[Rfam]
Source information
The record is a 101-nucleotide RNA from Candidatus Fukatsuia symbiotica, which matches "t44 RNA" in Rfam. The base pairs follow the family's consensus structure, which was predicted with LocARNA. Taxonomically the source falls in Candidatus Fukatsuia (Bacteria, Pseudomonadati, Pseudomonadota, Yersiniaceae). It is annotated as a small RNA.

RNA sequence: ACUCAUAUGUGUAAAUAACACACACGAAUCGACACAUACGCCGGGGUGCUCCGAGUUUCUUUCUUGCGGGGUCGGUGUUAUGGGAUUUGUGGAGGCAUAAC
Numbered sequence: 001a002c003u004c005a006u007a008u009g010u011g012u013a014a015a016u017a018a019c020a021c022a023c024a025c026g027a028a029u030c031g032a033c034a035c036a037u038a039c040g041c042c043g044g045g046g047u048g049c050u051c052c053g054a055g056u057u058u059c060u061u062u063c064u065u066g067c068g069g070g071g072u073c074g075g076u077g078u079u080a081u082g083g084g085a086u087u088u089g090u091g092g093a094g095g096c097a098u099a100a101c
Stems, first nucleotide, its partner, number of pairs: 023091008035082004040076004048072005